The family of this 162-nucleotide RNA from Medicago truncatula is "MIR2619 microRNA precursor family". The base pairs follow the family's consensus structure, which was predicted with RNAalifold. Lineage of the source: Eukaryota > Embryophyta > fabids > Hologalegina > Medicago.

[Rfam]
Nucleotides: 162
Base pairs, nucleotide, nucleotide: 001162002161004159005158006157007156008155012151013150014149015148016147017146018145019144020143021142022141023140024139025138026137027136028135029134030133031132032131033130034129035128036127037126038125039124040123041122042121043120045118064091065090067088068087069086070085071084072083073082
Number, partner (000 for none) and nucleotide at each position: 001162a002161a003000a004159c005158a006157g007156c008155c009000c010000c011000u012151u013150a014149u015148g016147u017146u018145u019144u020143g021142a022141u023140u024139c025138u026137u027136u028135g029134g030133c031132a032131g033130u034129u035128u036127u037126g038125g039124a040123c041122c042121c043120c044000a045118a046000a047000g048000g049000c050000a051000a052000a053000a054000a055000a056000a057000a058000a059000u060000u061000g062000a063000c064091a065090u066000g067088u068087g069086g070085c071084a072083c073082c074000u075000c076000a077000c078000u079000u080000a081000g082073g083072g084071u085070g086069u087068c088067a089000c090065g091064u092000c093000a094000g095000c096000a097000u098000u099000g100000a101000c102000c103000g104000a105000g106000u107000c108000a109000a110000c111000a112000a113000u114000g115000g116000a117000c118045u119000g120043g121042g122041g123040g124039u125038c126037u127036a128035a129034a130033a131032u132031u133030g134029c135028c136027a137026a138025a139024g140023a141022a142021u143020c144019a145018a146017a147016a148015c149014a150013u151012a152000g153000g154000g155008g156007g157006c158005u159004g160000u161002u162001u